The record is a 74-nucleotide RNA from Taxus chinensis, which matches "Plastid-ycf2 5UTR RNA" in Rfam. For this family Rfam cites "Retrograde signaling in plants: A critical review focusing on the GUN pathway and beyond" (Richter et al., Plant Commun, 2023). The family's consensus secondary structure was predicted with LocARNA. It is annotated as a cis-regulatory element. About the family: Plastid ycf2 is a non-coding RNA (ncRNA) recognised in plastids. It was found in the prime untranslated region (5UTR) of ycf2 genes, it presents a tRNA-like motif which suggests it can be involved in mRNA maturation, particularly involved in defining the precise 5' end of the transcript. Taxonomically the source falls in Taxus (Eukaryota, Streptophytina, Acrogymnospermae, Cupressales). A search with the family's covariance model found it, with a score of 73 bits.

RNA sequence: GUGCAUCCAACAUGAAUUGAACCAACGACUUCCCAAUUAUGAGUAGGGUGAUUUUACCAUUCAGCCAUGGAUGC
Numbered sequence: 001g002u003g004c005a006u007c008c009a010a011c012a013u014g015a016a017u018u019g020a021a022c023c024a025a026c027g028a029c030u031u032c033c034c035a036a037u038u039a040u041g042a043g044u045a046g047g048g049u050g051a052u053u054u055u056a057c058c059a060u061u062c063a064g065c066c067a068u069g070g071a072u073g074c
Stems, first nucleotide, its partner, number of pairs: 003074006014022001039068003043065002046062005